RNA sequence: GUGUAAGAUGAAACAACUAUGACCACAUGAUGGCGAAUAGUCGUGAUCUGAUUAUAUCAUCAUGUCUGUUUAUGUGCAAUAUAAAAGAACCUGAAACUGUUCAGGUUCUUUUUUGA
Numbered sequence: 001g002u003g004u005a006a007g008a009u010g011a012a013a014c015a016a017c018u019a020u021g022a023c024c025a026c027a028u029g030a031u032g033g034c035g036a037a038u039a040g041u042c043g044u045g046a047u048c049u050g051a052u053u054a055u056a057u058c059a060u061c062a063u064g065u066c067u068g069u070u071u072a073u074g075u076g077c078a079a080u081a082u083a084a085a086a087g088a089a090c091c092u093g094a095a096a097c098u099g100u101u102c103a104g105g106u107u108c109u110u111u112u113u114u115g116a
Stems, first nucleotide, its partner, number of pairs: 033073001035071004039065001043061001083112012
Bacillus sRNA ncr1015: a 116-nucleotide sequence from Paenibacillus elgii. The family's RNA type in Rfam is small RNA. The sequence is in the family's curated seed alignment. Taxonomically the source falls in Paenibacillus elgii (Bacteria, Bacillati, Bacillota, Paenibacillus). Pairs were carried over by alignment from the consensus structure, which is taken from published work. For this family Rfam cites "Identification of regulatory RNAs in Bacillus subtilis" (Irnov et al., Nucleic Acids Res, 2010).